RNA sequence: GUUUUUGGGAGGUCUGCAAAUUCGCCACAUCCUGUGGCAAAGCAGACAUGACCCGCAUCGUGCGGG
Dot-bracket structure: ...........((((((......(((((.....)))))...))))))....(((((.....)))))
RNA: Bacillaceae-1 RNA